Notes: The family of this 68-nucleotide sequence from Pangasianodon hypophthalmus is "mir-139 microRNA precursor family". The base pairs follow the family's consensus structure, which was predicted with RNAalifold. Rfam 15.1 lists 598 matches to the family in 559 species.
[Rfam]
RNA sequence: CUGUAUUCUACAGUGCAUGUGUCUCCAGUGUGUUUAUGAGACUGGAGAUGCGGCUCUGUUGGAAUAAC
Numbered sequence: 001c002u003g004u005a006u007u008c009u010a011c012a013g014u015g016c017a018u019g020u021g022u023c024u025c026c027a028g029u030g031u032g033u034u035u036a037u038g039a040g041a042c043u044g045g046a047g048a049u050g051c052g053g054c055u056c057u058g059u060u061g062g063a064a065u066a067a068c
Stems, first nucleotide, its partner, number of pairs: 006064004010059004015054002018052012